[Rfam]
RNA sequence: GGUGACUCACUCAACCUGGGUGUGAUGUGUUUGCUGUACCAUCACAACCUCCUUGAGUGAGCGACCGG
Numbered sequence: 001g002g003u004g005a006c007u008c009a010c011u012c013a014a015c016c017u018g019g020g021u022g023u024g025a026u027g028u029g030u031u032u033g034c035u036g037u038a039c040c041a042u043c044a045c046a047a048c049c050u051c052c053u054u055g056a057g058u059g060a061g062c063g064a065c066c067g068g
Stems, first nucleotide, its partner, number of pairs: 003063002006061009018049002021046007

Rfam assigns this 68-nucleotide RNA sequence from Tribolium castaneum to the family "mir-67 microRNA precursor family".
Pairs were carried over by alignment from the consensus structure, which was predicted with RNAalifold.
It is one of the family's seed sequences.